[Rfam]
RNA sequence: UGGCAACUGUGAUGAUUCCUUUAAACUCUGCAAUGUGCUUAGCUGCAGUAUGGAGACAACAGUCCCUCUAACCUGAUGUUGCUU
Numbered sequence: 001u002g003g004c005a006a007c008u009g010u011g012a013u014g015a016u017u018c019c020u021u022u023a024a025a026c027u028c029u030g031c032a033a034u035g036u037g038c039u040u041a042g043c044u045g046c047a048g049u050a051u052g053g054a055g056a057c058a059a060c061a062g063u064c065c066c067u068c069u070a071a072c073c074u075g076a077u078g079u080u081g082c083u084u
Base pairs, nucleotide, nucleotide: 002083003082004081005080006079007078
A member of the RNA family "Small nucleolar RNA SNORD127" from Pantherophis guttatus, 84 nucleotides long. It is annotated as a C/D-box small nucleolar RNA.